[Rfam]
Shown here is a 189-nucleotide RNA sequence from Chromohalobacter israelensis, a member of the family "Manganese Mn2+ riboswitch aptamer (yybP-ykoY)". Rfam's curators write: This RNA was originally discovered in E. coli during a large scale screen and was named SraF. The family was later found to exist upstream of related families of protein genes in many bacteria, including the the yybP and ykoK genes in B. subtilis. A search with the family's covariance model found it, with a score of 51 bits.

RNA sequence: GGGAGUAGUCUCUUUCCCGCCGACGGGGCGUUUCGCGCCUCUUCGCGCAUGCAAUGAAAGGUUUGCGUCAACACCUUUGGCCAUCCCGGCCAUGGCGCAAACAGCCUCCGGGCCUGACGAGACUCAGAACACCCGCUUCCGGUGCCGGCAGCGAGGUGUUCUGACCGUGACUCGCCGGCGCCGUGAGGA
Dot-bracket structure: ............((((.......................................)))).((((((((((.......(((((.....)))))))))))))))..((((............................................................................)))).